[Rfam]
RNA sequence: GGGGCAAAACGUUCUAUCGCUUCGUUCAGUCGAAGAGGAAAGUCCGGGCAACACAGAGUAUCCUGCUUCUUAACGGGAAGGCGCCGUCAGCCGGCGACAGCAAGUGCCACAGAGAAUAUACCGCCUGCUUGCAGGUAAGGGUGAAAACGUGAGGUAAGAGCUCACGGCUUUCCCGGGUGACCGGGAUCGCGGUAAACCUCAGGAGUUGAAAAACCAAAUAGGUCCUGGAUCGGAAGUUACUCGCUUUUGACCCAUUUAGAUGAGUCGCCAGGAUGGGUAGGUUGCUCAAGCUUGUCAGCAAUGGCAGGAUUAGAUUAAUGAUAGAAACCGCUUUCGGGCGGCACAGAACCCGGCUUACAGGUUUGCUGCUGAA
Numbered sequence: 001g002g003g004g005c006a007a008a009a010c011g012u013u014c015u016a017u018c019g020c021u022u023c024g025u026u027c028a029g030u031c032g033a034a035g036a037g038g039a040a041a042g043u044c045c046g047g048g049c050a051a052c053a054c055a056g057a058g059u060a061u062c063c064u065g066c067u068u069c070u071u072a073a074c075g076g077g078a079a080g081g082c083g084c085c086g087u088c089a090g091c092c093g094g095c096g097a098c099a100g101c102a103a104g105u106g107c108c109a110c111a112g113a114g115a116a117u118a119u120a121c122c123g124c125c126u127g128c129u130u131g132c133a134g135g136u137a138a139g140g141g142u143g144a145a146a147a148c149g150u151g152a153g154g155u156a157a158g159a160g161c162u163c164a165c166g167g168c169u170u171u172c173c174c175g176g177g178u179g180a181c182c183g184g185g186a187u188c189g190c191g192g193u194a195a196a197c198c199u200c201a202g203g204a205g206u207u208g209a210a211a212a213a214c215c216a217a218a219u220a221g222g223u224c225c226u227g228g229a230u231c232g233g234a235a236g237u238u239a240c241u242c243g244c245u246u247u248u249g250a251c252c253c254a255u256u257u258a259g260a261u262g263a264g265u266c267g268c269c270a271g272g273a274u275g276g277g278u279a280g281g282u283u284g285c286u287c288a289a290g291c292u293u294g295u296c297a298g299c300a301a302u303g304g305c306a307g308g309a310u311u312a313g314a315u316u317a318a319u320g321a322u323a324g325a326a327a328c329c330g331c332u333u334u335c336g337g338g339c340g341g342c343a344c345a346g347a348a349c350c351c352g353g354c355u356u357a358c359a360g361g362u363u364u365g366c367u368g369c370u371g372a373a
Base pairs, nucleotide, nucleotide: 001369003367004366005365006364007363008362010360011358012326013325014324015323016322017321018320020035021034022033023032024031040356041355042354044353045352046351047350048349049208050207051206052205057261059259061204062203063202064201065200066080067079068078069077070076081098082096083095084094085093099199100198104197105196106193107192108191121140122139123136124135125134126133127132148166149165150164151163152162153161171186172185173184174183175182176181212283213282214281215280222274223273224272225271226270227269253267256264257263291308292307293306294305295304296303297302